[Rfam]
RNA sequence: CUUUAUAGUACCUAUUCCAGUCAGAUUGCGAGAUUAAACUUCACUAUAAUUCUGCAUCUAAGAUGCUAUAAUGUAUUAUGGCAUCUUGUGGAACGAUAGUACAA
Numbered sequence: 001c002u003u004u005a006u007a008g009u010a011c012c013u014a015u016u017c018c019a020g021u022c023a024g025a026u027u028g029c030g031a032g033a034u035u036a037a038a039c040u041u042c043a044c045u046a047u048a049a050u051u052c053u054g055c056a057u058c059u060a061a062g063a064u065g066c067u068a069u070a071a072u073g074u075a076u077u078a079u080g081g082c083a084u085c086u087u088g089u090g091g092a093a094c095g096a097u098a099g100u101a102c103a104a
Base pairs, nucleotide, nucleotide: 021031022030043100044099045098046097047096050093051092052091055088056087061086062085063084064083065082066081067080068079070077071076
Record summary
The family of this 104-nucleotide RNA from Tetrahymena malaccensis is "Tetrahymena snoRNA TtnuHACA10". Pairs were carried over by alignment from the consensus structure, which was predicted with mfold. The family's RNA type in Rfam is H/ACA-box small nucleolar RNA. It is one of the family's seed sequences. For this family Rfam cites "Experimental identification and analysis of macronuclear non-coding RNAs from the ciliate Tetrahymena thermophila" (Andersen and Nielsen, Nucleic Acids Res, 2012). NCBI's taxonomy places the organism under Eukaryota, Sar, Ciliophora, Tetrahymena, Tetrahymena malaccensis. Rfam links the family to the GO terms nucleolus and RNA processing.